About this RNA
Shown here is a 160-nucleotide RNA from Anisodus acutangulus, a member of the family "U1 spliceosomal RNA".
[Rfam]
RNA sequence: AUACUUACCUGGACAGGGUCAAUGGGUGAUCAAUAAGGCCCAUGGCCUAGGCUGGUGAUCUCUAUUGCACUUUGGAGGGUGCACGCCUAAGGUCGGCCCAAGUGGUCGAGCCUACGUCAUAAUUUGUGACAGUUGGGGCCGGCGUUAGCGCGGCCCCUUG
Numbered sequence: 001a002u003a004c005u006u007a008c009c010u011g012g013a014c015a016g017g018g019u020c021a022a023u024g025g026g027u028g029a030u031c032a033a034u035a036a037g038g039c040c041c042a043u044g045g046c047c048u049a050g051g052c053u054g055g056u057g058a059u060c061u062c063u064a065u066u067g068c069a070c071u072u073u074g075g076a077g078g079g080u081g082c083a084c085g086c087c088u089a090a091g092g093u094c095g096g097c098c099c100a101a102g103u104g105g106u107c108g109a110g111c112c113u114a115c116g117u118c119a120u121a122a123u124u125u126g127u128g129a130c131a132g133u134u135g136g137g138g139c140c141g142g143c144g145u146u147a148g149c150g151c152g153g154c155c156c157c158u159u160g
Stems, first nucleotide, its partner, number of pairs: 012118003016048006023042005049088003053085001055082003059078005090113003093109003097105002135158004142151003

Taxonomically the source falls in Anisodus (Eukaryota, Spermatophyta, Mesangiospermae, Solanaceae). The family's consensus secondary structure is taken from published work.